Overview
This 108-nucleotide sequence from Tetracentron sinense belongs to the Rfam family "Small nucleolar RNA Z278". The family's consensus secondary structure was predicted with PFOLD. Lineage of the source: Eukaryota > Viridiplantae > Euphyllophyta > Magnoliopsida > Tetracentron. The literature on the family includes a 2003 paper in Nucleic Acids Res by Chen et al., "The high diversity of snoRNAs in plants: identification and comparative study of 120 snoRNA genes from Oryza sativa". Rfam 15.1 lists 1,130 matches to the family in 214 species. Rfam describes the family as follows. snoZ278 is a C/D box small nucleolar RNA. Its methylation guide targets have not been reported. Its family is annotated with nucleolus and RNA processing in the Gene Ontology. Rfam classes the family as a C/D-box small nucleolar RNA.
[Rfam]
RNA sequence: GCCUUUGAUGAAAUUAUCCAUGUUUUUGAGGUAGGGUUGGCUUCAUGUUCCUAUUUACAGGGAGAACCUACUUCAUUAUCUUAUGAAAUUAUUGGAUCUUUCUGAGGC
Numbered sequence: 001g002c003c004u005u006u007g008a009u010g011a012a013a014u015u016a017u018c019c020a021u022g023u024u025u026u027u028g029a030g031g032u033a034g035g036g037u038u039g040g041c042u043u044c045a046u047g048u049u050c051c052u053a054u055u056u057a058c059a060g061g062g063a064g065a066a067c068c069u070a071c072u073u074c075a076u077u078a079u080c081u082u083a084u085g086a087a088a089u090u091a092u093u094g095g096a097u098c099u100u101u102c103u104g105a106g107g108c
Stems, first nucleotide, its partner, number of pairs: 001108003049062004